[Rfam]
Record summary:
Small nucleolar RNA snoR14: a 76-nucleotide RNA sequence from Hibiscus syriacus. Pairs were carried over by alignment from the consensus structure. For this family Rfam cites "Multiple snoRNA gene clusters from Arabidopsis" (Brown et al., RNA, 2001). Its Rfam clan is "SNORD110 clan". Taxonomically the source falls in Hibiscus (Eukaryota, Viridiplantae, Streptophyta, Mesangiospermae).
RNA sequence: GUGAUGUGAUGAUAGAAAUUCAAUGGACUGAUCUACUAACUUGAUGUACAUUGAAGUUCCGACAGGUUCUGAUCAC
Numbered sequence: 001g002u003g004a005u006g007u008g009a010u011g012a013u014a015g016a017a018a019u020u021c022a023a024u025g026g027a028c029u030g031a032u033c034u035a036c037u038a039a040c041u042u043g044a045u046g047u048a049c050a051u052u053g054a055a056g057u058u059c060c061g062a063c064a065g066g067u068u069c070u071g072a073u074c075a076c
Stems, first nucleotide, its partner, number of pairs: 001076004